[Rfam]
RNA sequence: CUAAAACUCAACUGUAUGUCACUCUGGAUAAGAGUGUCUGCCAAAUGCCAUUAA
Numbered sequence: 001c002u003a004a005a006a007c008u009c010a011a012c013u014g015u016a017u018g019u020c021a022c023u024c025u026g027g028a029u030a031a032g033a034g035u036g037u038c039u040g041c042c043a044a045a046u047g048c049c050a051u052u053a054a
Stems, first nucleotide, its partner, number of pairs: 013043001014041003020036006
This 54-nucleotide RNA from Conger conger belongs to the Rfam family "UnaL2 LINE 3' element".